Record summary:
Shown here is an 89-nucleotide RNA sequence from Streptomyces genisteinicus, a member of the family "ZMP/ZTP riboswitch aptamer (pfl RNA motif)". The match comes from Rfam's covariance-model search (49 bits).

[Rfam]
RNA sequence: GCCGGGUACGGCGACUGGCGCGCGGGGAAUCGACCCCGGGGGAGCCGUACGAGGCAGUACGCGUGGUGCCGACCGCCUGGGCACCCCGG
Numbered sequence: 001g002c003c004g005g006g007u008a009c010g011g012c013g014a015c016u017g018g019c020g021c022g023c024g025g026g027g028a029a030u031c032g033a034c035c036c037c038g039g040g041g042g043a044g045c046c047g048u049a050c051g052a053g054g055c056a057g058u059a060c061g062c063g064u065g066g067u068g069c070c071g072a073c074c075g076c077c078u079g080g081g082c083a084c085c086c087c088g089g
Stems, first nucleotide, its partner, number of pairs: 003053001006050007015041002017077004024037004066084005
Dot-bracket structure: ..(..(((((((..(([[[[...((((......))))..))..)))))))..)............(((((...]]]]..))))).....